[Rfam]
RNA sequence: AUGCCUAAUGAUAAAGCUAUUAAUAUUUCAUCAUAGUUACAGCUAUUUAGUUGUCAAAAGGAAACUAUGAUAUAAU
Numbered sequence: 001a002u003g004c005c006u007a008a009u010g011a012u013a014a015a016g017c018u019a020u021u022a023a024u025a026u027u028u029c030a031u032c033a034u035a036g037u038u039a040c041a042g043c044u045a046u047u048u049a050g051u052u053g054u055c056a057a058a059a060g061g062a063a064a065c066u067a068u069g070a071u072a073u074a075a076u
Stems, first nucleotide, its partner, number of pairs: 030071008